[Rfam]
RNA sequence: UGACACAACCCUGGAGAGACUGCCAAUGGCAGCAUCAAAGGAGCAACCUAAUCAAUUGGUUAGGGAAACUUUCAGAUAAAAGGACAGGGAGUAGAAA
Numbered sequence: 001u002g003a004c005a006c007a008a009c010c011c012u013g014g015a016g017a018g019a020c021u022g023c024c025a026a027u028g029g030c031a032g033c034a035u036c037a038a039a040g041g042a043g044c045a046a047c048c049u050a051a052u053c054a055a056u057u058g059g060u061u062a063g064g065g066a067a068a069c070u071u072u073c074a075g076a077u078a079a080a081a082g083g084a085c086a087g088g089g090a091g092u093a094g095a096a097a
Stems, first nucleotide, its partner, number of pairs: 009089005020032004034077003038072001041071003047064005
Glycine riboswitch aptamer: a 97-nucleotide sequence from Anaerosolibacter carboniphilus. The organism belongs to Anaerosolibacter, within Bacteria.